A member of the RNA family "U11 spliceosomal RNA" from Mizuhopecten yessoensis, 129 nucleotides long.
[Rfam]
RNA sequence: AAAAAGGGCCUUUGUUGUGAUUGACACUUGGUACCCUCUGGGUUCCAAGCGGAAUGACAAUCAAGACAUUUCGGAGGCACAAUUUCUGUACACCGGUGGCAGUUGGUGUUCAUCUGACCUGACGCCCCA
Number, nucleotide and partner (000 for none) at each position: 001a000002a000003a000004a000005a000006g000007g000008g078009c077010c076011u075012u074013u026014g025015u024016u023017g022018u000019g000020a000021u000022u017023g016024a015025c014026a013027c049028u048029u047030g046031g045032u000033a043034c042035c041036c000037u000038c000039u000040g000041g035042g034043u033044u000045c031046c030047a029048a028049g027050c073051g072052g071053a070054a069055u068056g067057a000058c000059a000060a000061u000062c000063a000064a000065g000066a000067c056068a055069u054070u053071u052072c051073g050074g012075a011076g010077g009078c008079a000080c000081a000082a000083u000084u000085u000086c000087u000088g000089u000090a000091c000092a000093c000094c000095g000096g127097u000098g126099g125100c124101a000102g123103u122104u121105g120106g119107u000108g118109u117110u116111c000112a000113u000114c000115u000116g110117a109118c108119c106120u105121g104122a103123c102124g100125c099126c098127c096128c000129a000
It is annotated as a spliceosomal small nuclear RNA. A search with the family's covariance model found it, with a score of 96 bits.